Rfam assigns this 124-nucleotide RNA from a Sphingobacteriales bacterium to the family "SAM riboswitch aptamer (S box leader)". Rfam describes the family as follows. The SAM riboswitch is found upstream of a number of genes which code for proteins involved in methionine or cysteine biosynthesis in Gram-positive bacteria. NCBI's taxonomy places the organism under Bacteria, Pseudomonadati, Bacteroidota, Sphingobacteriia, Sphingobacteriales. A search with the family's covariance model found it, with a score of 76 bits.

RNA sequence: UACUUAUCCAGAAAGGCAGAGGGUCAUGGCCCGUUGAAGCCUUAGCAACCUUUUUACGAUUCUCUUCGGAGGCCGUAGAAGUUGGUGCUACUUCCAUCCCGCAUCCGUGCGGGGCAGAUGAGUC
Number, nucleotide and partner (000 for none) at each position: 001u000002a123003c122004u121005u120006a119007u118008c117009c000010a000011g000012a000013a043014a042015g041016g040017c039018a000019g000020a000021g032022g031023g030024u000025c000026a097027u096028g095029g094030c023031c022032c021033g000034u000035u000036g000037a000038a000039g017040c016041c015042u014043u013044a089045g088046c087047a086048a000049c085050c084051u081052u080053u079054u078055u077056a076057c075058g074059a000060u000061u000062c000063u000064c000065u000066u000067c000068g000069g000070a000071g000072g000073c000074c058075g057076u056077a055078g054079a053080a052081g051082u000083u000084g050085g049086u047087g046088c045089u044090a000091c000092u000093u116094c029095c028096a027097u026098c113099c112100c111101g110102c109103a108104u000105c000106c000107g000108u103109g102110c101111g100112g099113g098114g000115c000116a093117g008118a007119u006120g005121a004122g003123u002124c000